[Rfam]
RNA sequence: CCAGCAUGGUCAUCCAUUGAAGUUACUCAUGGCUCUAGCCAAGUGGCAUAUGGGAGCAUAGCCCUUAGUGCAGCGAUGUACCAUCCCCUUCCACAAUUGGCAGAGCAAGCCUGUCCCUGGUUCUAGAGCUGAUGGGGAUAGAAUCCUGUAUAUUCCUAUAAUUUUUCAUUGUCUUUAGACGUUUACUGAAAAGAGAAACCAUGCAGGGGGCAAUU
Numbered sequence: 001c002c003a004g005c006a007u008g009g010u011c012a013u014c015c016a017u018u019g020a021a022g023u024u025a026c027u028c029a030u031g032g033c034u035c036u037a038g039c040c041a042a043g044u045g046g047c048a049u050a051u052g053g054g055a056g057c058a059u060a061g062c063c064c065u066u067a068g069u070g071c072a073g074c075g076a077u078g079u080a081c082c083a084u085c086c087c088c089u090u091c092c093a094c095a096a097u098u099g100g101c102a103g104a105g106c107a108a109g110c111c112u113g114u115c116c117c118u119g120g121u122u123c124u125a126g127a128g129c130u131g132a133u134g135g136g137g138a139u140a141g142a143a144u145c146c147u148g149u150a151u152a153u154u155c156c157u158a159u160a161a162u163u164u165u166u167c168a169u170u171g172u173c174u175u176u177a178g179a180c181g182u183u184u185a186c187u188g189a190a191a192a193g194a195g196a197a198a199c200c201a202u203g204c205a206g207g208g209g210g211c212a213a214u215u
Stems, first nucleotide, its partner, number of pairs: 002100001004098001006097002008040003012036001014032003018029003043094004052087004056081001058079003061074002145207007162193006171180003

Overview: The family of this 215-nucleotide RNA sequence from Chelus fimbriata is "Small nucleolar RNA SNORA73 family". Rfam's curators write: U17 (SNORA73A and SNORA73B) also known as E1 belongs to the H/ACA class of small nucleolar RNAs (snoRNAs). Vertebrate U17 is intron-encoded and ranges in length from 200-230 nucleotides, longer than most snoRNAs. It is one of the most abundant snoRNAs in human cells and is essential for the cleavage of pre-rRNA within the 5' external transcribed spacer (ETS). This cleavage leads to the formation of 18S rRNA. Regions of the U17 RNA are complementary to rRNA and act as guides for RNA/RNA interactions, although these regions do not seem to be well conserved between organisms. On this family, see Enright et al., RNA 1996: "5'ETS rRNA processing facilitated by four small RNAs: U14, E3, U17, and U3". The family is grouped with related families in Rfam's "snR30-U17 clan". Rfam classes the family as an H/ACA-box small nucleolar RNA. The sequence is in the family's curated seed alignment.